[Rfam]
Streptomyces sRNA 4677: a 214-nucleotide RNA sequence from Streptomyces sp. yr375. By type it is a small RNA. NCBI's taxonomy places the organism under Bacteria, Actinomycetota, Kitasatosporales, Streptomycetaceae, Streptomyces. Pairs were carried over by alignment from the consensus structure. Rfam's curators write: Located in the intergenic region between anti-sigma factor SCO4677 gene and a putative regulatory protein gene SCO4676. scr4677 expression requires the SCO4677 activity and scr4677 sRNA itself seem to affect the levels of the SCO4676-associated transcripts.

RNA sequence: GGGGCCGGUGGGCCACUGGCCUCCCUUAAGGACCAGGGAAAGAACUACCCACCCACCCCCCCUCCCCGCCCGUGUCACCCGUGCGGGUGACCGGCUUGCAGCGGCGGAAGCGGAGCGGUUACGUUCGCCGCGACAACCGCAGACAAACGACGGCCCCCGCCGGGACGGCAAUCCCGGACGAGGGCCUGACCGCUCAGGAAGCUAGACCUUCCCA
Number, nucleotide and partner (000 for none) at each position: 001g194002g193003g000004g191005c000006c000007g000008g000009u000010g070011g000012g069013c068014c000015a000016c000017u000018g000019g000020c000021c000022u000023c000024c000025c000026u000027u000028a000029a000030g000031g000032a000033c000034c000035a000036g000037g000038g000039a000040a000041a000042g000043a000044a000045c000046u000047a000048c000049c000050c000051a000052c000053c000054c000055a000056c000057c000058c000059c000060c000061c000062c000063u000064c000065c000066c000067c000068g013069c012070c010071c000072g000073u000074g000075u090076c089077a088078c087079c086080c085081g000082u000083g000084c000085g080086g079087g078088u077089g076090a075091c000092c000093g000094g000095c000096u000097u000098g000099c000100a000101g000102c000103g129104g128105c127106g126107g125108a000109a000110g000111c000112g000113g000114a000115g000116c000117g000118g000119u000120u000121a000122c000123g000124u000125u107126c106127g105128c104129c103130g000131c000132g000133a000134c000135a000136a000137c000138c000139g000140c000141a000142g000143a000144c000145a000146a000147a000148c000149g000150a000151c000152g186153g185154c184155c183156c182157c000158c180159g179160c000161c000162g175163g174164g173165a172166c000167g000168g000169c000170a000171a000172u165173c164174c163175c162176g000177g000178a000179c159180g158181a000182g156183g155184g154185c153186c152187u000188g000189a000190c000191c004192g000193c002194u001195c000196a000197g212198g211199a210200a209201g208202c000203u000204a000205g000206a000207c000208c201209u200210u199211c198212c197213c000214a000